Record summary: Rfam assigns this 65-nucleotide RNA sequence from Aquabacterium sp. NJ1 to the family "Betaproteobacteria toxic small RNA". Overexpression in amino aid rich medium attenuates growth, suggesting role in repressing amino acid intake and metabolism. Rfam 15.1 lists 951 matches to the family in 508 species. A reference for the family is Kimelman et al. (2012), "A vast collection of microbial genes that are toxic to bacteria", Genome Res. Taxonomically the source falls in Aquabacterium (Bacteria, Pseudomonadati, Pseudomonadota, Burkholderiales). The match comes from Rfam's covariance-model search (60 bits).

Nucleotides: 065
Base pairs, nucleotide, nucleotide: 008028009027010026011025012024035058036057037056038055039054040053041052042051
Number, partner (000 for none) and nucleotide at each position: 001000u002000g003000u004000c005000u006000c007000c008028u009027c010026c011025a012024c013000u014000c015000c016000u017000c018000c019000u020000u021000u022000u023000g024012g025011u026010g027009g028008a029000u030000u031000c032000u033000g034000a035058a036057a037056c038055c039054c040053g041052a042051g043000a044000u045000u046000c047000a048000a049000a050000u051042c052041u053040c054039g055038g056037g057036u058035u059000u060000u061000u062000u063000u064000u065000u